[Rfam]
RNA sequence: CGAGUGGUUUAGGUAGUUUCAUGUUGUUGGGAUUGCAUUUCUCCCUCAGCAACACGAAACUGUCUUUAUUGCCAC
Numbered sequence: 001c002g003a004g005u006g007g008u009u010u011a012g013g014u015a016g017u018u019u020c021a022u023g024u025u026g027u028u029g030g031g032a033u034u035g036c037a038u039u040u041c042u043c044c045c046u047c048a049g050c051a052a053c054a055c056g057a058a059a060c061u062g063u064c065u066u067u068a069u070u071g072c073c074a075c
Stems, first nucleotide, its partner, number of pairs: 004072005011065009022054010
RNA: mir-196 microRNA precursor family
Organism: Electrophorus electricus